[Rfam]
RNA: mir-2060 microRNA precursor family
RNA sequence: GUAGUUUGUGUGUGGAUGGUGCUCAGCUCCAAGGAUUUGCGUUUGGCUGUGUGUGGAUGGUGAUCAGCACCAAGGACAGAUGUGUAUAGUC
Numbered sequence: 001g002u003a004g005u006u007u008g009u010g011u012g013u014g015g016a017u018g019g020u021g022c023u024c025a026g027c028u029c030c031a032a033g034g035a036u037u038u039g040c041g042u043u044u045g046g047c048u049g050u051g052u053g054u055g056g057a058u059g060g061u062g063a064u065c066a067g068c069a070c071c072a073a074g075g076a077c078a079g080a081u082g083u084g085u086a087u088a089g090u091c
Base pairs, nucleotide, nucleotide: 004081005080006079007078008077009076017072018071019070020069021068022067023066025064027062029060030059031058033052035050036049037046038045039044